[Rfam]
Nucleotides: 089
Stems, first nucleotide, its partner, number of pairs: 006084008020034004036069003039065002043063003049057002
Number, partner (000 for none) and nucleotide at each position: 001000u002000c003000g004000c005000a006084c007083g008082a009081a010080c011079c012078g013077g014000g015000a016000g017000a018000g019000a020034c021033c022032g023031c024000g025000c026000a027000u028000g029000c030000c031023g032022c033021g034020g035000c036069g037068c038067c039065g040064a041000a042000g043063g044062a045061g046000c047000a048000a049057c050056c051000g052000c053000c054000c055000c056050g057049g058000a059000a060000a061045c062044u063043c064040u065039c066000a067038g068037g069036c070000a071000a072000a073000a074000g075000g076000a077013c078012c079011g080010g081009u082008u083007c084006g085000c086000u087000g088000c089000a